[Rfam]
RNA sequence: UGAUGGCGUCAUGCACAGUUCUGGGAGAUGUUAUCACGUGCUAUCUCAUUCGGUGAUAUCGUCACCCAGCACCGCACAUGCCCAUCA
Numbered sequence: 001u002g003a004u005g006g007c008g009u010c011a012u013g014c015a016c017a018g019u020u021c022u023g024g025g026a027g028a029u030g031u032u033a034u035c036a037c038g039u040g041c042u043a044u045c046u047c048a049u050u051c052g053g054u055g056a057u058a059u060c061g062u063c064a065c066c067c068a069g070c071a072c073c074g075c076a077c078a079u080g081c082c083c084a085u086c087a
Stems, first nucleotide, its partner, number of pairs: 001087003005083002010080002018072002021069005027063004032058006